The record is an 80-nucleotide RNA from Erinaceus europaeus, which matches "Y RNA" in Rfam.
The literature on the family includes a 1995 paper in RNA by Van Horn et al., "Caenorhabditis elegans embryos contain only one major species of Ro RNP".
The source organism's lineage runs through Eukaryota, Opisthokonta, Eutheria, Boreoeutheria and Erinaceus.
The match comes from Rfam's covariance-model search (41 bits).
The family's RNA type in Rfam is non-coding RNA gene.
Rfam's curators write: Y RNAs are components of the Ro ribonucleoprotein particle (Ro RNP), in association with Ro60 and La proteins. The Y RNAs and Ro60 and La proteins are well conserved, but the function of the Ro RNP is not known. In humans the RNA component can be one of four small RNAs -- hY1, hY3, hY4 and hY5. These small RNAs are predicted to fold into a conserved secondary structure containing three stem structures. The largest of the four, hY1, contains an additional hairpin. This family includes a significant number of annotated pseudogenes and the model is expected to discriminate poorly between real and Y RNA related pseudogenes.
The base pairs follow the family's consensus structure, which is taken from published work.
RNA sequence: AGUUGGUCCAAGAGUUGUGGUUUAUUGUUAAACUGUUUAAUGUCUCCCAUCCAGAACUGCACUUGACUGAAUUGAGUUUU
Number, nucleotide and partner (000 for none) at each position: 001a072002g000003u070004u069005g068006g067007u066008c065009c000010a064011a063012g000013a000014g060015u059016u055017g000018u053019g052020g051021u000022u000023u000024a000025u000026u042027g041028u040029u000030a038031a037032a000033c000034u000035g000036u000037u031038u030039a000040a028041u027042g026043u000044c000045u000046c000047c000048c000049a000050u000051c020052c019053a018054g000055a016056a000057c000058u000059g015060c014061a000062c000063u011064u010065g008066a007067c006068u005069g004070a003071a000072u001073u000074g000075a000076g000077u000078u000079u000080u000